[Rfam]
The family of this 85-nucleotide sequence is "S4-Clostridia ribosomal protein leader". The literature on the family includes a 2020 paper in BMC Microbiol by Eckert and Weinberg, "Discovery of 20 novel ribosomal leader candidates in bacteria and archaea". Its Rfam clan is "Ribosomal Protein S4 Leader clan". The family's RNA type in Rfam is cis-regulatory leader. The family's consensus secondary structure is taken from published work. The sequence is in the family's curated seed alignment.

RNA sequence: GAAAAACUACACUAUGUGUAGUCGGGUAUUUCUUUGUACGUCAUUAAGGAAUUUCCUGCUUUGCAAAGAAGAUAUCUCAGUUUAG
Numbered sequence: 001g002a003a004a005a006a007c008u009a010c011a012c013u014a015u016g017u018g019u020a021g022u023c024g025g026g027u028a029u030u031u032c033u034u035u036g037u038a039c040g041u042c043a044u045u046a047a048g049g050a051a052u053u054u055c056c057u058g059c060u061u062u063g064c065a066a067a068g069a070a071g072a073u074a075u076c077u078c079a080g081u082u083u084a085g
Base pairs, nucleotide, nucleotide: 006022007021008020009019010018011017012016024077025076026075027074028073029072030071